The record is a 50-nucleotide RNA sequence, which matches "gut-2 RNA" in Rfam. It is one of the family's seed sequences. The family's RNA type in Rfam is small RNA. The family's consensus secondary structure is taken from published work.
RNA sequence: GACCGUUUGAUAAAUUGGUAUUAAGCGAAGGACUAAUAGGAGUCAGAAAC
Number, nucleotide and partner (000 for none) at each position: 001g000002a000003c000004c027005g026006u025007u000008u023009g022010a021011u020012a019013a000014a000015u000016u000017g000018g000019u012020a011021u010022u009023a008024a000025g006026c005027g004028a000029a000030g000031g044032a043033c042034u041035a000036a000037u000038a000039g000040g000041a034042g033043u032044c031045a000046g000047a000048a000049a000050c000